[Rfam]
Annotation
The record is a 113-nucleotide RNA from Thalassospira mesophila, which matches "Glycine riboswitch aptamer" in Rfam.

RNA sequence: CUCUGGAAAGCAGGCGGCAUGGUUUUUACAUGUGCGCCUCGCCGAAGAUGUAAGCCGGAUCUGGUGCCAGUUUGGUGCCAGAAAUGGUGAUUCUUUCAGGCUCCAAGACAGAG
Numbered sequence: 001c002u003c004u005g006g007a008a009a010g011c012a013g014g015c016g017g018c019a020u021g022g023u024u025u026u027u028a029c030a031u032g033u034g035c036g037c038c039u040c041g042c043c044g045a046a047g048a049u050g051u052a053a054g055c056c057g058g059a060u061c062u063g064g065u066g067c068c069a070g071u072u073u074g075g076u077g078c079c080a081g082a083a084a085u086g087g088u089g090a091u092u093c094u095u096u097c098a099g100g101c102u103c104c105a106a107g108a109c110a111g112a113g
Stems, first nucleotide, its partner, number of pairs: 001113005012039004041101003044097002048095001050093001054088004